[Rfam]
RNA sequence: CAUGGACCCCGGGUGCAAGCCCCGGGUGGCUCUUCCGGCCGCCUAUCCGCCGGAUCAUU
Numbered sequence: 001c002a003u004g005g006a007c008c009c010c011g012g013g014u015g016c017a018a019g020c021c022c023c024g025g026g027u028g029g030c031u032c033u034u035c036c037g038g039c040c041g042c043c044u045a046u047c048c049g050c051c052g053g054a055u056c057a058u059u
Stems, first nucleotide, its partner, number of pairs: 006027004011023003034054006
RNA: sul1 RNA